[Rfam]
RNA sequence: AAACAGUGGAGUUCAGAUACCACUAUAAAAACGAGGAGUAUUUCGAAAAGCCCAAGAGUAGAAAAAAC
Numbered sequence: 001a002a003a004c005a006g007u008g009g010a011g012u013u014c015a016g017a018u019a020c021c022a023c024u025a026u027a028a029a030a031a032c033g034a035g036g037a038g039u040a041u042u043u044c045g046a047a048a049a050g051c052c053c054a055a056g057a058g059u060a061g062a063a064a065a066a067a068c
Stems, first nucleotide, its partner, number of pairs: 006023004035052002042062002
This 68-nucleotide sequence from Salegentibacter echinorum belongs to the Rfam family "DUF805 RNA". Rfam 15.1 lists 281 matches to the family in 219 species. The family's consensus secondary structure is taken from published work. A search with the family's covariance model found it, with a score of 63 bits.